[Rfam]
RNA sequence: GAACAGCGAUGAAUCAAGAGGUUGCCGGACUUCCGGGUUAAUUCUUGAUGAGUAUGUUAGGAUCUAGAAUCCAACGA
Numbered sequence: 001g002a003a004c005a006g007c008g009a010u011g012a013a014u015c016a017a018g019a020g021g022u023u024g025c026c027g028g029a030c031u032u033c034c035g036g037g038u039u040a041a042u043u044c045u046u047g048a049u050g051a052g053u054a055u056g057u058u059a060g061g062a063u064c065u066a067g068a069a070u071c072c073a074a075c076g077a
Base pairs, nucleotide, nucleotide: 014048015047016046018044019043020042021039025036026035027034028033055076056075057074058073060072061071062070063069
RNA: S10-Clostridia ribosomal protein leader
Organism: Clostridium chauvoei